RNA sequence: CUUGUGCACUAGGGGAGCUCCAUUACGGGGCUGAGAUAGGUUCGUGCCUAGACCCUUAAGACCCGAUCUAGAUAAUACUAGCGUGGGGAAGUGCAGCGACGACACG
Numbered sequence: 001c002u003u004g005u006g007c008a009c010u011a012g013g014g015g016a017g018c019u020c021c022a023u024u025a026c027g028g029g030g031c032u033g034a035g036a037u038a039g040g041u042u043c044g045u046g047c048c049u050a051g052a053c054c055c056u057u058a059a060g061a062c063c064c065g066a067u068c069u070a071g072a073u074a075a076u077a078c079u080a081g082c083g084u085g086g087g088g089a090a091g092u093g094c095a096g097c098g099a100c101g102a103c104a105c106g
Stems, first nucleotide, its partner, number of pairs: 006094005011056004017031005038049004062087004068081004

Annotation:
Shown here is a 106-nucleotide sequence from Mangrovibacillus cuniculi, a member of the family "TPP riboswitch aptamer (THI element)". Its family is annotated with thiamine pyrophosphate binding in the Gene Ontology. For this family Rfam cites "Structure of the eukaryotic thiamine pyrophosphate riboswitch with its regulatory ligand" (Thore et al., Science, 2006). Pairs were carried over by alignment from the consensus structure, which is taken from published work. Lineage of the source: Bacteria > Bacillati > Bacillota > Bacillaceae > Mangrovibacillus.